[Rfam]
RNA sequence: CUCUUAUCCAGAGCAGGCGGAGGGACUGGCCCAAUGAAGCCCGGCAACCGAUAGCGACGGUGCUAACCAGCAGGAUGGAUGACCAUUCUGGCCGAUAAGAG
Numbered sequence: 001c002u003c004u005u006a007u008c009c010a011g012a013g014c015a016g017g018c019g020g021a022g023g024g025a026c027u028g029g030c031c032c033a034a035u036g037a038a039g040c041c042c043g044g045c046a047a048c049c050g051a052u053a054g055c056g057a058c059g060g061u062g063c064u065a066a067c068c069a070g071c072a073g074g075a076u077g078g079a080u081g082a083c084c085a086u087u088c089u090g091g092c093c094g095a096u097a098a099g100a101g
Base pairs, nucleotide, nucleotide: 001101002100003099004098005097006096007095008094013042016041017040018039022032023031024030026070027069028068029067043064044063045062046061048060049059071090072089073088074087075086076085
Dot-bracket structure: ((((((((....(..(((...(((.[[[[)))......))))((((.((.........))))))..]]]]((((((........))))))...))))))))